[Rfam]
A member of the RNA family "glmS glucosamine-6-phosphate activated ribozyme aptamer" from Lentibacillus cibarius, 170 nucleotides long. By type it is a riboswitch. Taxonomically the source falls in Lentibacillus (Bacteria, Bacillati, Bacilli, Caryophanales).

RNA sequence: AACUGAUAGAAAGCGCCUGGACUAUUUUUUGGACGGUUACGAAAAUAGUUGACGAGGUGGAGGUUAUCGAAUGUAUCGGCGGGUACCUCCCGGCUGCACAUCUCAGCUGUGACACCUUUUCCGAAAACAGUGAGGCGACUUGCUGUACAAAGGAUUAGGUAAGAUGAAUA
Numbered sequence: 001a002a003c004u005g006a007u008a009g010a011a012a013g014c015g016c017c018u019g020g021a022c023u024a025u026u027u028u029u030u031g032g033a034c035g036g037u038u039a040c041g042a043a044a045a046u047a048g049u050u051g052a053c054g055a056g057g058u059g060g061a062g063g064u065u066a067u068c069g070a071a072u073g074u075a076u077c078g079g080c081g082g083g084u085a086c087c088u089c090c091c092g093g094c095u096g097c098a099c100a101u102c103u104c105a106g107c108u109g110u111g112a113c114a115c116c117u118u119u120u121c122c123g124a125a126a127a128c129a130g131u132g133a134g135g136c137g138a139c140u141u142g143c144u145g146u147a148c149a150a151a152g153g154a155u156u157a158g159g160u161a162a163g164a165u166g167a168a169u170a
Base pairs, nucleotide, nucleotide: 020050021049022048023047024046025045026044027043029041059090060089061088062087063086067079068078069077070076091109092108093107094106095105096104114160115159116158117157120154128145129144130143131142132141133140134139
Dot-bracket structure: ...................((((((((.(...........).))))))))........(((((...((((.....))))......)))))((((((.......))))))....((((..(.......(((((((....)))))))........)..))))..........

A search with the family's covariance model found it, with a score of 103 bits. For this family Rfam cites "Evidence for preorganization of the glmS ribozyme ligand binding pocket" (Hampel and Tinsley, Biochemistry, 2006).